[Rfam]
RNA sequence: CCCCCUCUCAUCGGGGAGUAGCCACCGCCCGCGGGCGGGGCCGUGCCAACAGGCUUGCGCAAGGCGCGCAUGGCACGGCCAGCCGAAUCAUCGGCC
Number, nucleotide and partner (000 for none) at each position: 001c000002c000003c000004c000005c000006u000007c000008u000009c000010a000011u000012c000013g000014g000015g000016g000017a000018g000019u000020a000021g000022c000023c000024a000025c000026c037027g036028c035029c000030c000031g000032c000033g000034g000035g028036c027037g026038g000039g080040g079041c078042c077043g076044u075045g074046c073047c072048a071049a000050c000051a000052g000053g000054c000055u000056u070057g069058c068059g067060c066061a000062a000063g000064g000065c000066g060067c059068g058069c057070a056071u048072g047073g046074c045075a044076c043077g042078g041079c040080c039081a000082g000083c000084c000085g000086a000087a000088u000089c000090a000091u000092c000093g000094g000095c000096c000
RNA: Manganese Mn2+ riboswitch aptamer (yybP-ykoY)